Notes: The family of this 103-nucleotide RNA sequence from Bacillus sp. V5-8f is "SAM riboswitch aptamer (S box leader)". It scores 80 bits against the family's covariance model. NCBI's taxonomy places the organism under Bacteria, Bacillota, Bacilli, Caryophanales, Bacillus.
[Rfam]
RNA sequence: UUCUUAUCCAGAGAGGUGGAGGGACUGGCCCUGCGAUACCUCAGCAACAGACUUCAUAGAGAGUACUGUGCUAAUUCCAGAAGCUUAAGGCCGAAGAUAAGAA
Numbered sequence: 001u002u003c004u005u006a007u008c009c010a011g012a013g014a015g016g017u018g019g020a021g022g023g024a025c026u027g028g029c030c031c032u033g034c035g036a037u038a039c040c041u042c043a044g045c046a047a048c049a050g051a052c053u054u055c056a057u058a059g060a061g062a063g064u065a066c067u068g069u070g071c072u073a074a075u076u077c078c079a080g081a082a083g084c085u086u087a088a089g090g091c092c093g094a095a096g097a098u099a100a101g102a103a
Stems, first nucleotide, its partner, number of pairs: 001103008013042005021031003025080004043072004048068002051064004076095001083091002